The record is a 448-nucleotide RNA sequence from Tomitella fengzijianii, which matches "Bacterial RNase P class A" in Rfam.
RNA sequence: CGAGUCGGUGGGGCGGCCGCGGCACGGGGACCGGCGCGUACUGCGUGCAGGCCCGGGUCGAGGAAAGUCCGGACUCCACAGAGCAGGGCGGUUGCCAACGGCAACCCGGGGCGACCCGCGGGACAGUGCCACAGAGAACAGACCGCCGGCGCGCACCCUUCGGGGCGCGGGCCGGUAAGGGUGAAACGGUGCGGUAAGAGCGCACCAGCGUUGCGGGUGACCGCAGCGGCUCGGUAAACCCCGCCCGGAGCAAGGCCGAAGGCCGCAUCGGAUCCACUGUGGAUCGGGUGCGGCUGCGCAGGUGAUCGAGGGCUGCUCGCCCGAGCCUGCGGGUUGGCUGCUCGAGGCACCCGGCGACGGUGUGUCCAGAUGGAUGGUCGCCGCCCGCGCUGCCCGGUUCGCCGGUGCGGCGCGGGAACAAAAUCCGGCUUACACACCGGCUCGUCCG
Dot-bracket structure: ((((((((((((((((((.((((.((((.......................)))).))))....[[[.[[[[[((((...[[[[.((((((((((.....)))))(((((....)))).)((...(((((............((((((((.((..............)).))))))..)).......((((((.......)))))).(((((((((....)))))))).)..)))..)))))))))))))...((((........................................((((((......((((.]]]]))))..)))))).....))))......((((((((....))).))))).........))))))).........................................]]]]]]]].).))))))))))....

Rfam classes the family as a ribozyme. The base pairs follow the family's consensus structure, which is taken from published work. A search with the family's covariance model found it, with a score of 239 bits. Ribonuclease P (RNase P) is a ubiquitous endoribonuclease, found in archaea, bacteria and eukarya as well as chloroplasts and mitochondria.